[Rfam]
RNA sequence: AGCAGAGUAGAAAUUUGUGCGUUAAGUGCUAUGUGAACGGGGAGUUGUCACGUGGACGAAGAGGAAACUUGCGGUACAGAUUUCGCAUCCCGCUGCU
Numbered sequence: 001a002g003c004a005g006a007g008u009a010g011a012a013a014u015u016u017g018u019g020c021g022u023u024a025a026g027u028g029c030u031a032u033g034u035g036a037a038c039g040g041g042g043a044g045u046u047g048u049c050a051c052g053u054g055g056a057c058g059a060a061g062a063g064g065a066a067a068c069u070u071g072c073g074g075u076a077c078a079g080a081u082u083u084c085g086c087a088u089c090c091c092g093c094u095g096c097u
Base pairs, nucleotide, nucleotide: 001097002096003095004094005093010084011083012082013081014080015079016078017077018076019075020073021072022071026057027056029055030054031053032052033051034050035049036048040090041089042088044086061070062069063068